[Rfam]
RNA: mir-722 microRNA precursor family
Organism: Salmo salar
RNA sequence: AUUUGAAACGUUUUAGCCAAAAAUGUUUCCACAGUAAAGGUGUUUUUUGCAGAAACGUUUCAGAUUU
Numbered sequence: 001a002u003u004u005g006a007a008a009c010g011u012u013u014u015a016g017c018c019a020a021a022a023a024u025g026u027u028u029c030c031a032c033a034g035u036a037a038a039g040g041u042g043u044u045u046u047u048u049g050c051a052g053a054a055a056c057g058u059u060u061c062a063g064a065u066u067u
Stems, first nucleotide, its partner, number of pairs: 001065014016050002019047007029040002